RNA sequence: GCGGGCGUGGCGGAAUGGCAGACGCGCCAGACUUAGGAUCUGGUGGGGUUAACCCGUGGAGGUUCAAGUCCUCUCGCCCGCA
Numbered sequence: 001g002c003g004g005g006c007g008u009g010g011c012g013g014a015a016u017g018g019c020a021g022a023c024g025c026g027c028c029a030g031a032c033u034u035a036g037g038a039u040c041u042g043g044u045g046g047g048g049u050u051a052a053c054c055c056g057u058g059g060a061g062g063u064u065c066a067a068g069u070c071c072u073c074u075c076g077c078c079c080g081c082a
Stems, first nucleotide, its partner, number of pairs: 001081007010025003027043005058074005
Background:
This 82-nucleotide RNA sequence from Neomoorella thermoacetica belongs to the Rfam family "tRNA". Rfam classes the family as a transfer RNA. The organism belongs to Neomoorella, within Bacteria.